[Rfam]
The record is a 210-nucleotide sequence from Actinomadura coerulea, which matches "c-di-AMP riboswitch aptamer (ydaO/yuaA leader)" in Rfam. Gene Ontology terms of the family: regulation of gene expression and cyclic-di-AMP binding. NCBI's taxonomy places the organism under Bacteria, Bacillati, Actinomycetes, Thermomonosporaceae, Actinomadura.
Nucleotides: 210
Stems, first nucleotide, its partner, number of pairs: 011194004018047003048189006058105001106174003114151004154168004
Number, partner (000 for none) and nucleotide at each position: 001000g002000a003000g004000g005000c006000c007000g008000a009000u010000c011194c012193g013192c014191c015000g016000a017000g018047u019046c020045c021000c022000a023000c024000g025000g026000g027000u028000c029000g030000c031000a032000g033000c034000c035000a036000g037000c038000c039000g040000c041000c042000c043000g044000a045020g046019g047018a048189g049188c050187c051186g052185g053184g054000g055000a056000c057000c058105c059000a060000c061000u062000u063000u064000c065000g066000g067000g068000a069000g070000c071000g072000u073000u074000c075000g076000g077000g078000g079000a080000u081000u082000c083000g084000c085000c086000c087000c088000u089000g090000a091000g092000c093000g094000a095000c096000c097000g098000a099000c100000c101000g102000u103000g104000a105058g106174g107173g108172g109000u110000g111000a112000a113000u114151c115150c116149g117148c118000u119000u120000u121000c122000g123000c124000g125000g126000g127000g128000c129000g130000a131000u132000c133000g134000g135000u136000u137000c138000g139000c140000u141000c142000g143000c144000g145000g146000a147000c148117g149116c150115g151114g152000a153000c154168g155167g156166g157165c158000c159000g160000c161000u162000c163000c164000g165157g166156c167155c168154c169000c170000a171000a172108c173107c174106c175000g176000u177000c178000a179000g180000c181000u182000c183000a184053c185052c186051c187050g188049g189048u190000a191014g192013g193012c194011g195000g196000c197000u198000g199000a200000g201000g202000a203000g204000a205000g206000g207000a208000g209000u210000a